[Rfam]
RNA: Plastid-psbA-1 3UTR RNA
RNA sequence: GUCCAAGCUCCAGCGACAAAUGGAUAAGGUUUCGGUCUUAGUGUAUCCGAGUCAUUGAGGUUGAAGGAGUAAUACCCAAUUUCUUGUUCUAUCAAGAGGGUGGGUAUUGUUCCUUCAU
Numbered sequence: 001g002u003c004c005a006a007g008c009u010c011c012a013g014c015g016a017c018a019a020a021u022g023g024a025u026a027a028g029g030u031u032u033c034g035g036u037c038u039u040a041g042u043g044u045a046u047c048c049g050a051g052u053c054a055u056u057g058a059g060g061u062u063g064a065a066g067g068a069g070u071a072a073u074a075c076c077c078a079a080u081u082u083c084u085u086g087u088u089c090u091a092u093c094a095a096g097a098g099g100g101u102g103g104g105u106a107u108u109g110u111u112c113c114u115u116c117a118u
Stems, first nucleotide, its partner, number of pairs: 009024004063116013077102002081098005